Rfam assigns this 266-nucleotide RNA sequence from Didymosphaeria variabile to the family "Fungal signal recognition particle RNA".
Rfam classes the family as a non-coding RNA gene.
Rfam links the family to the GO terms signal recognition particle, endoplasmic reticulum targeting, SRP-dependent cotranslational protein targeting to membrane, signal sequence recognition and signal recognition particle, plasma membrane targeting.
The family has 50 seed sequences and 748 matches in Rfam 15.1.
The family is grouped with related families in Rfam's "SRP clan".
On this family, see Wild et al., Curr Opin Struct Biol 2002: "Towards the structure of the mammalian signal recognition particle".
The base pairs follow the family's consensus structure, which is taken from published work.
[Rfam]
RNA sequence: ACCUGUAACGGGUCCAAAUUUCAGAAGAUAGGCCGUAAUCUCGCACGUGCCUCCCAAGUCUUCACUCUAAUAGGAGCCCAGUUCGAGUCCGGUGGUGGUCGUCUCACUCGCUUAGGUAACUAGCGAUGCUGAGUGGCCCUAAGCAAUGAAUACAAUCAGACGAGGGAAGCAAUUCUGCAGUCAGGUAUUCACCAUUGGACGGCGGCGCUGGAUUACUCUAAUUAGGGUUGGGAGGUGUGAGCGAGGUGGCUGUUCAACUGAUUUUU
Dot-bracket structure: (((.......)))....(..((((..((..((.((.....((((.(((((((((..(((....))).((((.((((.((((((((.(((((((((.(.(((.((((.(((((.((....)))))))...))))))).)(...)...(((((((...(.(((....(((....)))....))).)))))))))))))))))..))).)))))....)))).))))......))))))))).))))..)).))..))..))))..)..